[Rfam]
RNA sequence: CAUCAGUCUAACAGAAUGCUCUCUGCACAAACUGGGAAAGUUUGAUGCUCAGUGUGCGGAGAUGCUUCUGCUGCACUGGUG
Dot-bracket structure: ((.((((.((.(((((...((((((((((..((.................))))))))))))...))))).)).)))).))
This 81-nucleotide sequence from Cynoglossus semilaevis belongs to the Rfam family "mir-147 microRNA precursor family". Pairs were carried over by alignment from the consensus structure, which was predicted with RNAalifold. The source organism's lineage runs through Eukaryota, Actinopterygii, Carangaria, Cynoglossinae and Cynoglossus.